[Rfam]
RNA sequence: CUCUGGAGAGUGUUUACUUUGUAAACCACCUAAGAAGCAAGCCCUGUGCUAAUGCAGGACGAAACUUUCUGGUGCAAGGACAGGG
Numbered sequence: 001c002u003c004u005g006g007a008g009a010g011u012g013u014u015u016a017c018u019u020u021g022u023a024a025a026c027c028a029c030c031u032a033a034g035a036a037g038c039a040a041g042c043c044c045u046g047u048g049c050u051a052a053u054g055c056a057g058g059a060c061g062a063a064a065c066u067u068u069c070u071g072g073u074g075c076a077a078g079g080a081c082a083g084g085g
Stems, first nucleotide, its partner, number of pairs: 001085005012026004028073003032068001035067003041060001
Rfam assigns this 85-nucleotide RNA sequence from Sediminibacillus albus to the family "Glycine riboswitch aptamer". The family is grouped with related families in Rfam's "Glycine riboswitch clan". Lineage of the source: Bacteria > Bacillota > Bacilli > Caryophanales > Sediminibacillus. Rfam describes the family as follows. This family represents the bacterial glycine riboswitch. A search with the family's covariance model found it, with a score of 34 bits. Rfam 15.1 lists 9,425 matches to the family in 5,228 species.